Shown here is a 68-nucleotide RNA from Sphaeramia orbicularis, a member of the family "miR-430 microRNA precursor family".
A reference for the family is Giraldez et al. (2005), "MicroRNAs regulate brain morphogenesis in zebrafish", Science.
RNA sequence: CAGAUCACCUCAAAUCAAAGCACUGAUGACUGUUUCUUCCAUAAGUGCUUUUCUUUGGGGUUGUCUAG
Number, nucleotide and partner (000 for none) at each position: 001c000002a000003g000004a064005u063006c000007a061008c060009c059010u058011c057012a000013a000014a055015u000016c000017a052018a051019a049020g048021c047022a046023c045024u044025g000026a042027u041028g040029a000030c000031u000032g000033u000034u000035u000036c000037u000038u000039c000040c028041a027042u026043a000044a024045g023046u022047g021048c020049u019050u000051u018052u017053c000054u000055u014056u000057g011058g010059g009060g008061u007062u000063g005064u004065c000066u000067a000068g000

Taxonomically the source falls in Sphaeramia (Eukaryota, Bilateria, Osteoglossocephalai, Percomorphaceae). Rfam 15.1 lists 24,817 matches to the family in 105 species. The family is grouped with related families in Rfam's "mir-290 clan". Its family is annotated with miRNA-mediated post-transcriptional gene silencing and RISC complex in the Gene Ontology. A search with the family's covariance model found it, with a score of 48 bits. The family's consensus secondary structure was predicted with RNAalifold.